RNA sequence: AGGCUGCAGCUAAAUCAAACCCACACAAGUUAACUGGCCGGUCGUUGAAUUCGAUCUAAUCGGAUCUUCGUCGACGAAUCUGCUUACCGAACUUCUUAUAUUU
Numbered sequence: 001a002g003g004c005u006g007c008a009g010c011u012a013a014a015u016c017a018a019a020c021c022c023a024c025a026c027a028a029g030u031u032a033a034c035u036g037g038c039c040g041g042u043c044g045u046u047g048a049a050u051u052c053g054a055u056c057u058a059a060u061c062g063g064a065u066c067u068u069c070g071u072c073g074a075c076g077a078a079u080c081u082g083c084u085u086a087c088c089g090a091a092c093u094u095c096u097u098a099u100a101u102u103u
Stems, first nucleotide, its partner, number of pairs: 025096001027094005036084003040080003044075004
Small nucleolar RNA snoR109: a 103-nucleotide RNA from Cucurbita maxima. Taxonomically the source falls in Cucurbita (Eukaryota, Viridiplantae, Gunneridae, fabids). Gene Ontology terms of the family: nucleolus and RNA processing. The base pairs follow the family's consensus structure, which was predicted with WAR. On this family, see Marker et al., Curr Biol 2002: "Experimental RNomics: identification of 140 candidates for small non-messenger RNAs in the plant Arabidopsis thaliana". The match comes from Rfam's covariance-model search (71 bits).